[Rfam]
RNA sequence: AGUGUAGAGAGGGGUGAAGGUUGCUGUGAUAUAUUAGGUAAUUCACCCUUCUCUCACUAA
Numbered sequence: 001a002g003u004g005u006a007g008a009g010a011g012g013g014g015u016g017a018a019g020g021u022u023g024c025u026g027u028g029a030u031a032u033a034u035u036a037g038g039u040a041a042u043u044c045a046c047c048c049u050u051c052u053c054u055c056a057c058u059a060a
Stems, first nucleotide, its partner, number of pairs: 002057003006054006013048002018043001023039003
The family of this 60-nucleotide RNA from Sarcophilus harrisii is "mir-7398 microRNA precursor family".
The base pairs follow the family's consensus structure, which was predicted with RNAalifold.
It scores 45 bits against the family's covariance model.
The organism belongs to Sarcophilus, within Eukaryota.